[Rfam]
RNA sequence: AGGAGAGUCCUCGGUGUCCUGUGCCCUCCCGGCCUCCACCUGUCCCGGGGCGAGCGCAGGAUCCUGGGCUGUGUCCC
Numbered sequence: 001a002g003g004a005g006a007g008u009c010c011u012c013g014g015u016g017u018c019c020u021g022u023g024c025c026c027u028c029c030c031g032g033c034c035u036c037c038a039c040c041u042g043u044c045c046c047g048g049g050g051c052g053a054g055c056g057c058a059g060g061a062u063c064c065u066g067g068g069c070u071g072u073g074u075c076c077c
Stems, first nucleotide, its partner, number of pairs: 002076003006072001010068005016062009025052001027050006

About this RNA:
Shown here is a 77-nucleotide RNA from Canis lupus, a member of the family "mir-8791 microRNA precursor family". The source organism's lineage runs through Eukaryota, Vertebrata, Boreoeutheria, Caniformia and Canis lupus. The family's consensus secondary structure was predicted with RNAalifold. Rfam 15.1 lists 32 matches to the family in 4 species. Gene Ontology terms of the family: RISC complex and miRNA-mediated post-transcriptional gene silencing. The family is grouped with related families in Rfam's "mir-8791 microRNA precursor clan".